[Rfam]
RNA sequence: UGGGUGGAAUAGUAUAACAAUAUAAAAUGUGUUGUUAUAGUAUUCCACCUUCCCUGAUGUC
Numbered sequence: 001u002g003g004g005u006g007g008a009a010u011a012g013u014a015u016a017a018c019a020a021u022a023u024a025a026a027a028u029g030u031g032u033u034g035u036u037a038u039a040g041u042a043u044u045c046c047a048c049c050u051u052c053c054c055u056g057a058u059g060u061c
Base pairs, nucleotide, nucleotide: 002050003049004048005047006046007045009043010042011041013039014038015037016036017035018034019033020032021031022030023029
The record is a 61-nucleotide RNA sequence from Mohoua ochrocephala, which matches "mir-2985 microRNA precursor family" in Rfam. From the family's description: RNAs can be post-transcriptional modified, in micro RNAs (miRNA) editing of pre-mRNA is a common process.